[Rfam]
RNA sequence: UUGUGCUAGCUUCAAAUUACCACGCAUAAAUCUUUCGCCUUUUACUAAAGAUUUCCGUGGAGGGGAACAAUCAAUGAGUAUAUAACCAAUUUUUCUCUGCCCUGCCUUGUGCGGGGCU
Numbered sequence: 001u002u003g004u005g006c007u008a009g010c011u012u013c014a015a016a017u018u019a020c021c022a023c024g025c026a027u028a029a030a031u032c033u034u035u036c037g038c039c040u041u042u043u044a045c046u047a048a049a050g051a052u053u054u055c056c057g058u059g060g061a062g063g064g065g066a067a068c069a070a071u072c073a074a075u076g077a078g079u080a081u082a083u084a085a086c087c088a089a090u091u092u093u094u095c096u097c098u099g100c101c102c103u104g105c106c107u108u109g110u111g112c113g114g115g116g117c118u
Stems, first nucleotide, its partner, number of pairs: 003079002006076001009068001011066003017060003028054008099117006
This 118-nucleotide RNA sequence from Branchiostoma belcheri belongs to the Rfam family "U5 spliceosomal RNA". It scores 76 bits against the family's covariance model. Rfam links the family to the GO terms U5 snRNP and spliceosomal tri-snRNP complex assembly. Rfam classes the family as a spliceosomal small nuclear RNA. The source organism's lineage runs through Eukaryota, Bilateria, Leptocardii, Branchiostomatidae and Branchiostoma. The base pairs follow the family's consensus structure, which is taken from published work.